[Rfam]
This 178-nucleotide sequence from Caenimonas sedimenti belongs to the Rfam family "FMN riboswitch aptamer (RFN element)". The base pairs follow the family's consensus structure, which is taken from published work. On this family, see Vitreschak et al., Nucleic Acids Res 2002: "Regulation of riboflavin biosynthesis and transport genes in bacteria by transcriptional and translational attenuation". A search with the family's covariance model found it, with a score of 102 bits.
RNA sequence: AAUGGUCUUCAGGGCGGGGUGCAAUUCCCCACCGGCGGUAGGCGGCGAUGUUCUCGCCGCAAGCCCGCGAGCGCCCGCGGCUUCUUUCGAGAGAGAACCUUUCGAAAGAUCCACGGGGUCAGCAGACCCAGUCGAAUUCUGGGGCCGACGGUCACAGUCCGGAUGAAAGAAGAUCUGG
Dot-bracket structure: ...(((((((......(((.......))).[[((((((........................[[))))..((.................................................))...(((((.......)))))]])).(((.....]]))).......)))))))...